Shown here is a 131-nucleotide RNA from Colocasia esculenta, a member of the family "Small nucleolar RNA snoR74". A reference for the family is Marker et al. (2002), "Experimental RNomics: identification of 140 candidates for small non-messenger RNAs in the plant Arabidopsis thaliana", Curr Biol. By type it is an H/ACA-box small nucleolar RNA. It scores 54 bits against the family's covariance model. The base pairs follow the family's consensus structure, which was predicted with WAR.
RNA sequence: AAAAGAAGGGAUAUGUUUGUCUGUAAGCCUGUCCUUCGUAAUUCAAAGGAAAAUUGACAUGGCAUUUCUAUUGGGUGAACCCUUGUAGGUUAAAACCAUGGACAUGUGGUUCGAUCAGUGAUGCAAUAUCG
Numbered sequence: 001a002a003a004a005g006a007a008g009g010g011a012u013a014u015g016u017u018u019g020u021c022u023g024u025a026a027g028c029c030u031g032u033c034c035u036u037c038g039u040a041a042u043u044c045a046a047a048g049g050a051a052a053a054u055u056g057a058c059a060u061g062g063c064a065u066u067u068c069u070a071u072u073g074g075g076u077g078a079a080c081c082c083u084u085g086u087a088g089g090u091u092a093a094a095a096c097c098a099u100g101g102a103c104a105u106g107u108g109g110u111u112c113g114a115u116c117a118g119u120g121a122u123g124c125a126a127u128a129u130c131g
Base pairs, nucleotide, nucleotide: 005043009034010033012031013030015028062124063123064122065121066120068118069117076113077112078111079110080109081108